[Rfam]
Nucleotides: 046
Base pairs, nucleotide, nucleotide: 001020002019004017005016006015007014008013033045034044035043036042037041
Number, partner (000 for none) and nucleotide at each position: 001020c002019c003000c004017c005016g006015g007014a008013c009000g010000g011000a012000a013008g014007u015006c016005c017004g018000a019002g020001g021000c022000u023000a024000u025000c026000a027000c028000c029000u030000a031000c032000c033045g034044u035043g036042c037041c038000u039000u040000u041037g042036g043035c044034a045033c046000u
A member of the RNA family "Acido-Lenti-1 RNA" from Novipirellula aureliae, 46 nucleotides long. Pairs were carried over by alignment from the consensus structure, which is taken from published work. The organism belongs to Novipirellula, within Bacteria.